Shown here is a 100-nucleotide RNA from Clostridium sulfidigenes, a member of the family "Purine riboswitch aptamer". It scores 66 bits against the family's covariance model. Rfam describes the family as follows. Riboswitches are metabolite binding domains within certain messenger RNAs that serve as precision sensors for their corresponding targets.
[Rfam]
RNA sequence: AAAGAAAUAAUCACUAAUUUUCAUAUAGGUCUAAUGCGAUGGAUUAGAUGUUUCUACCGGAUACCGAUAAAAUCCGACUAUGAGAAUUCCUAUGUUAAAA
Numbered sequence: 001a002a003a004g005a006a007a008u009a010a011u012c013a014c015u016a017a018u019u020u021u022c023a024u025a026u027a028g029g030u031c032u033a034a035u036g037c038g039a040u041g042g043a044u045u046a047g048a049u050g051u052u053u054c055u056a057c058c059g060g061a062u063a064c065c066g067a068u069a070a071a072a073u074c075c076g077a078c079u080a081u082g083a084g085a086a087u088u089c090c091u092a093u094g095u096u097a098a099a100a
Base pairs, nucleotide, nucleotide: 018086019085020084021083022082023081024080025079029049030048031047032046033045034044035043058076059075060074061073062072